A member of the RNA family "RNase MRP" from Fusarium sp. NRRL 66182, 454 nucleotides long. Its Rfam clan is "RNaseP clan".
RNA sequence: CCCUCGCUCAAUAAAUCGCCAUUCGAAGCUCACAAACAGAGACACUGCUUUCAUGCAGCGUCUCCCUCUCUAUGGCUUUGGGAGAAAGUCCCCGGACGUCUUCGUUUUAACGGAGCUUGCGGAAACGCGCCGCCAUAGAAGCACAGCGGCUGACCUCUGCACCCAGGCCCUCUCCUUGCGCCGGCCCUGCCCUCCGCUACAUCUUCCAUGCUCAGCGCUUUGAUGCUACCUUUUCUCCCCGCUCUCGGCCCUCUUGGAUGAAGAUAUGAGUCCGCUGUCGAGCUGUGGGGGAUUCUGUGGCAGAUGGGUGUCUGGCUGGUGGAUGGUGGGCAGACGUCUUUGGCGCCUGUGGGUGUGGUGUCGGGUCGCAGAGGAUUUGUUGUCGAGGUUGAUAGGUAUGCGAUUGCCCGGCGAAAGCUGGGUUACUCAAUGGGGCUCAUUCUUGAUUGCGAGG
Numbered sequence: 001c002c003c004u005c006g007c008u009c010a011a012u013a014a015a016u017c018g019c020c021a022u023u024c025g026a027a028g029c030u031c032a033c034a035a036a037c038a039g040a041g042a043c044a045c046u047g048c049u050u051u052c053a054u055g056c057a058g059c060g061u062c063u064c065c066c067u068c069u070c071u072a073u074g075g076c077u078u079u080g081g082g083a084g085a086a087a088g089u090c091c092c093c094g095g096a097c098g099u100c101u102u103c104g105u106u107u108u109a110a111c112g113g114a115g116c117u118u119g120c121g122g123a124a125a126c127g128c129g130c131c132g133c134c135a136u137a138g139a140a141g142c143a144c145a146g147c148g149g150c151u152g153a154c155c156u157c158u159g160c161a162c163c164c165a166g167g168c169c170c171u172c173u174c175c176u177u178g179c180g181c182c183g184g185c186c187c188u189g190c191c192c193u194c195c196g197c198u199a200c201a202u203c204u205u206c207c208a209u210g211c212u213c214a215g216c217g218c219u220u221u222g223a224u225g226c227u228a229c230c231u232u233u234u235c236u237c238c239c240c241g242c243u244c245u246c247g248g249c250c251c252u253c254u255u256g257g258a259u260g261a262a263g264a265u266a267u268g269a270g271u272c273c274g275c276u277g278u279c280g281a282g283c284u285g286u287g288g289g290g291g292a293u294u295c296u297g298u299g300g301c302a303g304a305u306g307g308g309u310g311u312c313u314g315g316c317u318g319g320u321g322g323a324u325g326g327u328g329g330g331c332a333g334a335c336g337u338c339u340u341u342g343g344c345g346c347c348u349g350u351g352g353g354u355g356u357g358g359u360g361u362c363g364g365g366u367c368g369c370a371g372a373g374g375a376u377u378u379g380u381u382g383u384c385g386a387g388g389u390u391g392a393u394a395g396g397u398a399u400g401c402g403a404u405u406g407c408c409c410g411g412c413g414a415a416a417g418c419u420g421g422g423u424u425a426c427u428c429a430a431u432g433g434g435g436c437u438c439a440u441u442c443u444u445g446a447u448u449g450c451g452a453g454g
Base pairs, nucleotide, nucleotide: 002454003453004452005451006450007449008446009445010444011443014405015404016403017402018401019400023082024080025079026078027077028076029075039064040063041062042061043060045058046057047056048055087437088436090435091434092433093432101114102113103112104111105110333376335374337372338371339370341368342367346365347364348363349362407422408421409420410419411418412417